Plastid-rps18 3UTR RNA: a 57-nucleotide RNA sequence from Gossypium mustelinum. On this family, see Richter et al., Plant Commun 2023: "Retrograde signaling in plants: A critical review focusing on the GUN pathway and beyond". The family's RNA type in Rfam is cis-regulatory element. Plastid rps18 is a non-coding RNA (ncRNA) present in plastids. It was identified as a short stem-loop motif in the 3 prime untranslate region (3UTR) of rps18 gene. The base pairs follow the family's consensus structure, which was predicted with LocARNA.
RNA sequence: UGCAAGUAUUUUACUAUUCAGAAGCAAAUCUUUCUUGUAUAGAUUGUAUAUUAAUCU
Numbered sequence: 001u002g003c004a005a006g007u008a009u010u011u012u013a014c015u016a017u018u019c020a021g022a023a024g025c026a027a028a029u030c031u032u033u034c035u036u037g038u039a040u041a042g043a044u045u046g047u048a049u050a051u052u053a054a055u056c057u
Stems, first nucleotide, its partner, number of pairs: 018037001020035005